TPP riboswitch aptamer (THI element): a 113-nucleotide sequence from Streptomyces clavuligerus. A search with the family's covariance model found it, with a score of 64 bits.
RNA sequence: UAAAGCACUCGCGGGAGCCCGGACGCACCGGGCUGAGAGGGAGGCUGGCCGGCCUCCGACCGUACGAACCUGAUCCGGGUCAUACCGGCGAAGGGAGGAGCCGAACACCCAUG
Dot-bracket structure: .......(((((((..(((((.......)))))......(((((((....)))))))..)))).....(((...((((......))))...)))...))).............